[Rfam]
RNA sequence: CCCUUAGAGUUUGAUCCUGGCUCAGGACGAACGCUGGCGGCGUGCUUAACACAUGCAAGUCGGACGGUCAGGCUAUGAAGGUUCGCUGGAUUGGCCUGAUAGUGGCGGACGGGUGAGUAACGCGUGAGGACAUGGCUUCAGGAGGGGGAUAACGUUUGGAAACGGACGCUAAGACCCCAUAUGCCGGAAGGUGAAAGUGAUCUUCGGAUCAGCCUGGAGAGUGACUCGCGUCCUAUCAGCUAGUUGGUGGGGUGAAGGCCUACCAAGGCGAUGACGGGUAGCCGACCUGAGAGGGUGGCCGGCCACACUGGAACUGAGAUACGGUCCAGACUCCUACGGGAGGCAGCAGUGGGGAAUAUUGGGCAAUGGGCGCAAGCCUGACCCAGCGACGCCGCGUGGGGGAUGAAGUCUUUCGGGAUGUAAACCCUUGUUGUACGGGACGAAAACAAUGACGGUACCGUACGAGGAAGCCCCGGCAAACUACGUGCCAGCAGCCGCGGUAAUACGUAGGGGGCGAGCGUUGUCCGGAAUUACUG
Numbered sequence: 001c002c003c004u005u006a007g008a009g010u011u012u013g014a015u016c017c018u019g020g021c022u023c024a025g026g027a028c029g030a031a032c033g034c035u036g037g038c039g040g041c042g043u044g045c046u047u048a049a050c051a052c053a054u055g056c057a058a059g060u061c062g063g064a065c066g067g068u069c070a071g072g073c074u075a076u077g078a079a080g081g082u083u084c085g086c087u088g089g090a091u092u093g094g095c096c097u098g099a100u101a102g103u104g105g106c107g108g109a110c111g112g113g114u115g116a117g118u119a120a121c122g123c124g125u126g127a128g129g130a131c132a133u134g135g136c137u138u139c140a141g142g143a144g145g146g147g148g149a150u151a152a153c154g155u156u157u158g159g160a161a162a163c164g165g166a167c168g169c170u171a172a173g174a175c176c177c178c179a180u181a182u183g184c185c186g187g188a189a190g191g192u193g194a195a196a197g198u199g200a201u202c203u204u205c206g207g208a209u210c211a212g213c214c215u216g217g218a219g220a221g222u223g224a225c226u227c228g229c230g231u232c233c234u235a236u237c238a239g240c241u242a243g244u245u246g247g248u249g250g251g252g253u254g255a256a257g258g259c260c261u262a263c264c265a266a267g268g269c270g271a272u273g274a275c276g277g278g279u280a281g282c283c284g285a286c287c288u289g290a291g292a293g294g295g296u297g298g299c300c301g302g303c304c305a306c307a308c309u310g311g312a313a314c315u316g317a318g319a320u321a322c323g324g325u326c327c328a329g330a331c332u333c334c335u336a337c338g339g340g341a342g343g344c345a346g347c348a349g350u351g352g353g354g355a356a357u358a359u360u361g362g363g364c365a366a367u368g369g370g371c372g373c374a375a376g377c378c379u380g381a382c383c384c385a386g387c388g389a390c391g392c393c394g395c396g397u398g399g400g401g402g403a404u405g406a407a408g409u410c411u412u413u414c415g416g417g418a419u420g421u422a423a424a425c426c427c428u429u430g431u432u433g434u435a436c437g438g439g440a441c442g443a444a445a446a447c448a449a450u451g452a453c454g455g456u457a458c459c460g461u462a463c464g465a466g467g468a469a470g471c472c473c474c475g476g477c478a479a480a481c482u483a484c485g486u487g488c489c490a491g492c493a494g495c496c497g498c499g500g501u502a503a504u505a506c507g508u509a510g511g512g513g514g515c516g517a518g519c520g521u522u523g524u525c526c527g528g529a530a531u532u533a534c535u536g
Stems, first nucleotide, its partner, number of pairs: 007023005025526004030522006037395006043388002045353001050351003054348003059106003064103002067100002070087002075082002113306003122231007131223002136219007144178004153168006184207005190201001192199002232278003239269003244266008281303004285296004308329005331342004359385001361384003367380005398428004408419004432467001433463006442453001470515005481510005491498002

Shown here is a 536-nucleotide part of an RNA from an uncultured bacterium, a member of the family "Bacterial small subunit ribosomal RNA".
Pairs were carried over by alignment from the consensus structure, which is taken from published work.